FMN riboswitch aptamer (RFN element): a 140-nucleotide sequence from Neobittarella massiliensis.

[Rfam]
RNA sequence: AGUCUGUUUCAGGGCGAGGUGCGAUUCCUCACCGGCGGUAAGGGGCGUUGCCCCGAGCCCGCGACCGCACAGUCUCUGCUGUGCGCUGAUCUGGUGUGAUUCCAGAGCCGACGGUAUAGUCCGGAUAGAAGAAACGACAC
Numbered sequence: 001a002g003u004c005u006g007u008u009u010c011a012g013g014g015c016g017a018g019g020u021g022c023g024a025u026u027c028c029u030c031a032c033c034g035g036c037g038g039u040a041a042g043g044g045g046c047g048u049u050g051c052c053c054c055g056a057g058c059c060c061g062c063g064a065c066c067g068c069a070c071a072g073u074c075u076c077u078g079c080u081g082u083g084c085g086c087u088g089a090u091c092u093g094g095u096g097u098g099a100u101u102c103c104a105g106a107g108c109c110g111a112c113g114g115u116a117u118a119g120u121c122c123g124g125a126u127a128g129a130a131g132a133a134a135c136g137a138c139a140c
Base pairs, nucleotide, nucleotide: 005136006135007134008133009132010131017029018028019027031120032119033110034109035062036061037060038059057108058107066085067084090106091105092104093103094102112123113122114121

Notes: NCBI's taxonomy places the organism under Bacteria, Bacillota, Clostridia, Eubacteriales, Neobittarella (ex Bilen et al. 2018).